The record is an 82-nucleotide RNA from Ruminococcaceae bacterium FB2012, which matches "S10-Clostridia ribosomal protein leader" in Rfam. NCBI's taxonomy places the organism under Bacteria, Bacillati, Bacillota, Eubacteriales, Oscillospiraceae. The family's consensus secondary structure is taken from published work. It is annotated as a cis-regulatory leader.
[Rfam]
RNA sequence: UGAUAUGCGAUGAAGCGAAAGGUUGCCGGCGGUCUGUCGGGGAAUUUUCGUGGAGUAUGUCCGAUUUUAAACCGGGCGACUG
Number, nucleotide and partner (000 for none) at each position: 001u000002g000003a000004u000005a000006u000007g000008c000009g000010a000011u000012g000013a000014a000015g051016c050017g049018a000019a048020a047021g046022g045023u000024u000025g000026c040027c039028g038029g037030c036031g000032g000033u000034c000035u000036g030037u029038c028039g027040g026041g000042g000043a000044a000045u022046u021047u020048u019049c017050g016051u015052g000053g000054a000055g000056u000057a000058u000059g080060u079061c078062c000063g000064a000065u076066u075067u074068u000069a000070a000071a000072c000073c000074g067075g066076g065077c000078g061079a060080c059081u000082g000